[Rfam]
RNA sequence: UUGAAGCUUUUUUGUACGUCGCUUUGGAUAAAAGCAUCUGCCAAAUGAAUGUAA
Numbered sequence: 001u002u003g004a005a006g007c008u009u010u011u012u013u014g015u016a017c018g019u020c021g022c023u024u025u026g027g028a029u030a031a032a033a034g035c036a037u038c039u040g041c042c043a044a045a046u047g048a049a050u051g052u053a054a
Base pairs, nucleotide, nucleotide: 013043014041015040016039021035022034023033024032025031